[Rfam]
This 74-nucleotide RNA from Maritimibacter harenae belongs to the Rfam family "Singlet oxygen resistance RNA X".

RNA sequence: CCCCUUUCCGUGUCGGGGUAAUGGCACGGUAUCCUCCCUGUUGGACUGACCCGGCCACGCGCCGGGUCUUUUUU
Dot-bracket structure: .......(((((((........)))))))..................((((((((.....))))))))......

It scores 70 bits against the family's covariance model. The family's RNA type in Rfam is small RNA. Its family is annotated with response to photooxidative stress in the Gene Ontology.